[Rfam]
RNA sequence: GAUAUUUGAAGUAGAGAUUGUGCUGCUACGCACCCAUUGGGUCAAAAGAAAUGUGGGAGAGGGCACACCCACCAAAUAUC
Numbered sequence: 001g002a003u004a005u006u007u008g009a010a011g012u013a014g015a016g017a018u019u020g021u022g023c024u025g026c027u028a029c030g031c032a033c034c035c036a037u038u039g040g041g042u043c044a045a046a047a048g049a050a051a052u053g054u055g056g057g058a059g060a061g062g063g064c065a066c067a068c069c070c071a072c073c074a075a076a077u078a079u080c
Base pairs, nucleotide, nucleotide: 001080002079003078004077005076006075007074008073011029012028013027014026020066021065022064023063024062031048032042033041034040035039053072054071055070056069057068

Shown here is an 80-nucleotide RNA sequence, a member of the family "skipping-rope RNA".
By type it is a small RNA.
The sequence is in the family's curated seed alignment.